Shown here is a 99-nucleotide RNA from Nicotiana sylvestris, a member of the family "Small nucleolar RNA Z161/Z228".
Lineage of the source: Eukaryota > Euphyllophyta > eudicotyledons > lamiids > Nicotiana.
Rfam classes the family as a C/D-box small nucleolar RNA.
Pairs were carried over by alignment from the consensus structure, which was predicted with PFOLD.
Rfam links the family to the GO terms RNA processing and nucleolus.
Its Rfam clan is "SNORD35 clan".
RNA sequence: AAGCCGAAUGAUGAUUUUUUGGAUUAAUUCUCACGACGGUCGUCUGAGGCACCUUUUGGUGCCGAAAUUGAUGUAAAGAUCCAAACUUUCUGAUUGGUU
Dot-bracket structure: ((.(.............................................(((......)))..................................).))
Numbered sequence: 001a002a003g004c005c006g007a008a009u010g011a012u013g014a015u016u017u018u019u020u021g022g023a024u025u026a027a028u029u030c031u032c033a034c035g036a037c038g039g040u041c042g043u044c045u046g047a048g049g050c051a052c053c054u055u056u057u058g059g060u061g062c063c064g065a066a067a068u069u070g071a072u073g074u075a076a077a078g079a080u081c082c083a084a085a086c087u088u089u090c091u092g093a094u095u096g097g098u099u
Stems, first nucleotide, its partner, number of pairs: 001099002004096001050061003